[Rfam]
RNA sequence: UGGUGCUGACUGGAUGUAACAGCAACUCCAUGUGGAAGCUUUGAGUCUUUCUUCCAGUGGAGCUGCUGUUGCGUGCAGGAAGCCA
Numbered sequence: 001u002g003g004u005g006c007u008g009a010c011u012g013g014a015u016g017u018a019a020c021a022g023c024a025a026c027u028c029c030a031u032g033u034g035g036a037a038g039c040u041u042u043g044a045g046u047c048u049u050u051c052u053u054c055c056a057g058u059g060g061a062g063c064u065g066c067u068g069u070u071g072c073g074u075g076c077a078g079g080a081a082g083c084c085a
Base pairs, nucleotide, nucleotide: 010078011077012076016072017071018070019069020068021067022066023065026062027061028060029059030058031057033056034055035054
Shown here is an 85-nucleotide RNA from Danionella cerebrum, a member of the family "mir-194 microRNA precursor family". Its family is annotated with miRNA-mediated post-transcriptional gene silencing and RISC complex in the Gene Ontology. NCBI's taxonomy places the organism under Eukaryota, Chordata, Neopterygii, Danioninae, Danionella. A reference for the family is Michael et al. (2003), "Reduced accumulation of specific microRNAs in colorectal neoplasia", Mol Cancer Res. The family's consensus secondary structure was predicted with RNAalifold.